Description:
The family of this 299-nucleotide sequence from Paenibacillus sp. YN15 is "glmS glucosamine-6-phosphate activated ribozyme aptamer". From the family's description: This entry contains a glucosamine-6-phosphate activated ribozyme that is found in the mRNA for GlmS. GlmS is an enzyme that uses fructose-6-phosphate and glutamine to generate glucosamine-6-phosphate. The family's consensus secondary structure is taken from published work.

RNA sequence: UUGCACGACUAAGCGCCAGAGCUUGGGGCGCGGUGAGGGCAGGGGAAUCGGAGUGAUUUGCCCGGCAAGAGGGCGGGAACGGCAGGGAACCGGCGGCUGUGGCGCCGCGGUUGGCCGGAUUCGCCAGGGCAAAGAGCAAGCUUCCAAUUGGCCGGAGCCGGCGCAAGCUGACGAGGUGAAGGUGUUCGGAUUUUUCGGCGGGGACCUUCCGGUCUUGAGCAAGUACGCAUCCAGGCCGUGAAGCUGGAAGGCAAAUCGGCGCGGGCAACCGGCCGCACAAGAUUCCAGCAGGAUGCUUU
Numbered sequence: 001u002u003g004c005a006c007g008a009c010u011a012a013g014c015g016c017c018a019g020a021g022c023u024u025g026g027g028g029c030g031c032g033g034u035g036a037g038g039g040c041a042g043g044g045g046a047a048u049c050g051g052a053g054u055g056a057u058u059u060g061c062c063c064g065g066c067a068a069g070a071g072g073g074c075g076g077g078a079a080c081g082g083c084a085g086g087g088a089a090c091c092g093g094c095g096g097c098u099g100u101g102g103c104g105c106c107g108c109g110g111u112u113g114g115c116c117g118g119a120u121u122c123g124c125c126a127g128g129g130c131a132a133a134g135a136g137c138a139a140g141c142u143u144c145c146a147a148u149u150g151g152c153c154g155g156a157g158c159c160g161g162c163g164c165a166a167g168c169u170g171a172c173g174a175g176g177u178g179a180a181g182g183u184g185u186u187c188g189g190a191u192u193u194u195u196c197g198g199c200g201g202g203g204a205c206c207u208u209c210c211g212g213u214c215u216u217g218a219g220c221a222a223g224u225a226c227g228c229a230u231c232c233a234g235g236c237c238g239u240g241a242a243g244c245u246g247g248a249a250g251g252c253a254a255a256u257c258g259g260c261g262c263g264g265g266c267a268a269c270c271g272g273c274c275g276c277a278c279a280a281g282a283u284u285c286c287a288g289c290a291g292g293a294u295g296c297u298u299u
Stems, first nucleotide, its partner, number of pairs: 020169006027162001029160001178209005186198004210238006243289007257275004262271003